Overview: The record is a 72-nucleotide RNA from Actinomyces weissii, which matches "tRNA" in Rfam.
RNA sequence: UCCCGCGUAGCUCAAUGGCAGAGCAUCCGACUGUUAAUCGGACGGUUAGUGGUUCGAGUCCACUCGCGGGAG
Numbered sequence: 001u002c003c004c005g006c007g008u009a010g011c012u013c014a015a016u017g018g019c020a021g022a023g024c025a026u027c028c029g030a031c032u033g034u035u036a037a038u039c040g041g042a043c044g045g046u047u048a049g050u051g052g053u054u055c056g057a058g059u060c061c062a063c064u065c066g067c068g069g070g071a072g
Stems, first nucleotide, its partner, number of pairs: 001071007010024004026042005048064005
Dot-bracket structure: (((((((..((((.......)))).(((((.......))))).....(((((.......)))))))))))).

Source information: Rfam classes the family as a transfer RNA. The organism belongs to Actinomyces, within Bacteria.